[Rfam]
Nucleotides: 090
Base pairs, nucleotide, nucleotide: 008083009082010081011080012079013078020030021029022028032069033068034067035065036064039063040062041061045056046055
Number, partner (000 for none) and nucleotide at each position: 001000g002000g003000a004000c005000g006000a007000a008083c009082c010081u011080c012079u013078g014000g015000a016000g017000a018000g019000a020030c021029u022028c023000u024000u025000u026000a027000u028022g029021a030020g031000c032069g033068c034067c035065g036064a037000a038000g039063g040062g041061g042000a043000a044000a045056g046055c047000u048000g049000u050000u051000u052000a053000c054000a055046g056045u057000g058000a059000a060000a061041c062040u063039c064036u065035c066000a067034g068033g069032u070000a071000c072000a073000a074000g075000g076000g077000a078013c079012a080011g081010a082009g083008g084000c085000a086000g087000a088000u089000g090000c

The record is a 90-nucleotide RNA sequence from Fusibacter sp. 3D3, which matches "Glycine riboswitch aptamer" in Rfam. The organism belongs to Fusibacter, within Bacteria. Clan: Glycine riboswitch clan.